The family of this 93-nucleotide RNA from Alkaliphilus metalliredigens is "THF (Tetrahydrofolate) riboswitch aptamer". The base pairs follow the family's consensus structure, which is taken from published work. The source organism's lineage runs through Bacteria, Clostridia, Peptostreptococcales, Natronincolaceae and Alkaliphilus metalliredigens. Tetrahydrofolate (THF) riboswitch was first reported for Ames et al. as an RNA motif in 5' untranslated (5'-UTR)regions of folate transport and biosynthesis genes in Firmicutes genomes. Rfam's curators put it in the seed alignment.

[Rfam]
RNA sequence: GGCAGAGUAGGUGUUAUGCGUUAAGUGUUAGGGGAUGGGAAGUUGCUCCUAAACGAAGAACUCAUUUCGCGAUAUAACACCGCGUCCACUGUC
Numbered sequence: 001g002g003c004a005g006a007g008u009a010g011g012u013g014u015u016a017u018g019c020g021u022u023a024a025g026u027g028u029u030a031g032g033g034g035a036u037g038g039g040a041a042g043u044u045g046c047u048c049c050u051a052a053a054c055g056a057a058g059a060a061c062u063c064a065u066u067u068c069g070c071g072a073u074a075u076a077a078c079a080c081c082g083c084g085u086c087c088a089c090u091g092u093c
Base pairs, nucleotide, nucleotide: 001093002092003091004090005089010081011080012079013078014077015076016075017074018073019071020070021069025054026053028052029051030050031049032048033047034046038087039086040085042083058068059067060066
Dot-bracket structure: (((((....((((((((((((...((.(((((((...[[[.[...)))))))))...(((.....)))))).))))))))).].]]].)))))